[Rfam]
RNA: Small nucleolar RNA snoR97
Nucleotides: 103
Stems, first nucleotide, its partner, number of pairs: 041097007053084006060076001061073001
Number, partner (000 for none) and nucleotide at each position: 001000c002000a003000u004000u005000u006000g007000u008000u009000g010000u011000a012000u013000g014000c015000a016000c017000g018000g019000a020000g021000g022000c023000u024000g025000a026000a027000g028000a029000a030000c031000u032000c033000a034000g035000a036000u037000a038000c039000c040000c041097u042096g043095u044094g045093u046092u047091g048000u049000c050000a051000u052000c053084a054083g055082c056081u057080u058079c059000u060076u061073c062000u063000u064000u065000a066000c067000u068000u069000g070000c071000a072000u073061g074000u075000a076060a077000c078000u079058g080057g081056a082055g083054c084053u085000a086000a087000a088000c089000u090000a091047c092046g093045g094044c095043a096042c097041a098000a099000c100000a101000u102000u103000u